This 570-nucleotide part of an RNA from Dolosigranulum pigrum belongs to the Rfam family "Bacterial small subunit ribosomal RNA". Its Rfam clan is "SSU clan".

[Rfam]
RNA sequence: AAACAUGAGAGUUUGAUCUUGGCUCAGGACGAACGCUGGCGGCAUGCCUAAUACAUGCAAGUCGAACGAUGAUAUCACUGCUUGCAGUGAUUGAUUAGUGGCGAACGGGUGAGUAACACGUGAGGAACUUGCCCAUGAGCGGGGGACAACAUUCGGAAACGGAUGCUAAUACCCCAUAGGUGGAUUGGUCGCAUGACUAAUUCAUUAAAGGUGGCUUUGCUACCACUCAUGGAUAGCCUCGCGGCGUAUUAGCUAGUUGGUAAGGUAAUGGCUUACCAAGGCAGUGAUACGUAGCCGACUUGAGAGGGUGAUCGGCCACACUGGGACUGAGACACGGCCCAGACUCCUACGGGAGGCAGCAGUAGGGAAUCUUCCACAAUGGGUGCAAACCUGAUGGAGCAAUGCCGCGUGAGUGAAGAAGGUCUUCGGAUCGUAAAGCUCUGUUGUUAGAGAAGAACACGUGCUAGGUAACUACUAGCGCCUUGACGGUAUCUAACCAGAAAGUCACGGCUAACUACGUGCCAGCAGCCGCGGUAAUACGUAGGUGACAAGCGUUGUCCGGAUUUAUUG
Numbered sequence: 001a002a003a004c005a006u007g008a009g010a011g012u013u014u015g016a017u018c019u020u021g022g023c024u025c026a027g028g029a030c031g032a033a034c035g036c037u038g039g040c041g042g043c044a045u046g047c048c049u050a051a052u053a054c055a056u057g058c059a060a061g062u063c064g065a066a067c068g069a070u071g072a073u074a075u076c077a078c079u080g081c082u083u084g085c086a087g088u089g090a091u092u093g094a095u096u097a098g099u100g101g102c103g104a105a106c107g108g109g110u111g112a113g114u115a116a117c118a119c120g121u122g123a124g125g126a127a128c129u130u131g132c133c134c135a136u137g138a139g140c141g142g143g144g145g146a147c148a149a150c151a152u153u154c155g156g157a158a159a160c161g162g163a164u165g166c167u168a169a170u171a172c173c174c175c176a177u178a179g180g181u182g183g184a185u186u187g188g189u190c191g192c193a194u195g196a197c198u199a200a201u202u203c204a205u206u207a208a209a210g211g212u213g214g215c216u217u218u219g220c221u222a223c224c225a226c227u228c229a230u231g232g233a234u235a236g237c238c239u240c241g242c243g244g245c246g247u248a249u250u251a252g253c254u255a256g257u258u259g260g261u262a263a264g265g266u267a268a269u270g271g272c273u274u275a276c277c278a279a280g281g282c283a284g285u286g287a288u289a290c291g292u293a294g295c296c297g298a299c300u301u302g303a304g305a306g307g308g309u310g311a312u313c314g315g316c317c318a319c320a321c322u323g324g325g326a327c328u329g330a331g332a333c334a335c336g337g338c339c340c341a342g343a344c345u346c347c348u349a350c351g352g353g354a355g356g357c358a359g360c361a362g363u364a365g366g367g368a369a370u371c372u373u374c375c376a377c378a379a380u381g382g383g384u385g386c387a388a389a390c391c392u393g394a395u396g397g398a399g400c401a402a403u404g405c406c407g408c409g410u411g412a413g414u415g416a417a418g419a420a421g422g423u424c425u426u427c428g429g430a431u432c433g434u435a436a437a438g439c440u441c442u443g444u445u446g447u448u449a450g451a452g453a454a455g456a457a458c459a460c461g462u463g464c465u466a467g468g469u470a471a472c473u474a475c476u477a478g479c480g481c482c483u484u485g486a487c488g489g490u491a492u493c494u495a496a497c498c499a500g501a502a503a504g505u506c507a508c509g510g511c512u513a514a515c516u517a518c519g520u521g522c523c524a525g526c527a528g529c530c531g532c533g534g535u536a537a538u539a540c541g542u543a544g545g546u547g548a549c550a551a552g553c554g555u556u557g558u559c560c561g562g563a564u565u566u567a568u569u570g
Base pairs, nucleotide, nucleotide: 009025010024011023012022013021027560028559029558030557032556033555034554035553036552037551039408040407041406042405043404044403045401046400047366052364053363054362056361057360058359061102062101063100066099067098069095070094074091075090076089077088078087079086080085109319110318111317119243120242121241122240123239124238125237128236129235133232134231135230136229137228138227139226141175142174143173144172150165151164152163153162154161155160181204182203183202184201185200186199187198188197189196190195210224211223212222213221214220245291246290247289252282253281254280257279258278259277260276261275262274263273264272294316295315296314297313298309299308300307301306321342322341323340324339325338344355345354346353347352372398374397375396376395380393381392382391383390384389411441412440413439414438421432422431423430424429445501446497447496448495449494450493451492455487461481462480463479464478465477466476504549505548506547507546508545515544516543517542518541519540525532526531